Description
This 63-nucleotide RNA from Caballeronia telluris belongs to the Rfam family "Betaproteobacteria toxic small RNA". For this family Rfam cites "Identification of small RNAs abundant in Burkholderia cenocepacia biofilms reveal putative regulators with a potential role in carbon and iron metabolism" (Sass et al., Sci Rep, 2017). Overexpression in amino aid rich medium attenuates growth, suggesting role in repressing amino acid intake and metabolism. Rfam 15.1 lists 951 matches to the family in 508 species.
[Rfam]
Nucleotides: 063
Stems, first nucleotide, its partner, number of pairs: 008028006032056006039049001
Number, partner (000 for none) and nucleotide at each position: 001000c002000g003000u004000c005000u006000c007000c008028u009027c010026c011025a012024c013023c014000u015000c016000c017000u018000c019000c020000u021000u022000u023013g024012g025011u026010g027009g028008a029000u030000u031000a032056a033055g034054c035053u036052c037051g038000a039049g040000c041000c042000u043000c044000a045000g046000u047000u048000g049039c050000c051037c052036g053035g054034g055033c056032u057000u058000u059000u060000u061000u062000u063000c
It scores 61 bits against the family's covariance model.